[Rfam]
The family of this 111-nucleotide sequence from Terrilactibacillus tamarindi is "SAM riboswitch aptamer (S box leader)".
RNA sequence: CUCUUAUCCCGAGUAGGCGGAGGGACAGGCCCGAUGAAGCCCGGCAACCGGCAUGUUAUGUGUACGGUGCUAACCUGAAAGGAUUUAAUUAAAUUCCCUUGACGAUAAGAG
Numbered sequence: 001c002u003c004u005u006a007u008c009c010c011g012a013g014u015a016g017g018c019g020g021a022g023g024g025a026c027a028g029g030c031c032c033g034a035u036g037a038a039g040c041c042c043g044g045c046a047a048c049c050g051g052c053a054u055g056u057u058a059u060g061u062g063u064a065c066g067g068u069g070c071u072a073a074c075c076u077g078a079a080a081g082g083a084u085u086u087a088a089u090u091a092a093a094u095u096c097c098c099u100u101g102a103c104g105a106u107a108a109g110a111g
Base pairs, nucleotide, nucleotide: 001111002110003109004108005107006106007105008104013042016041017040018039022032023031024030026077027076028075043071044070045069046068048067049066051063052062053061078100079099081097082096083095

NCBI's taxonomy places the organism under Bacteria, Bacillati, Bacillota, Caryophanales, Terrilactibacillus.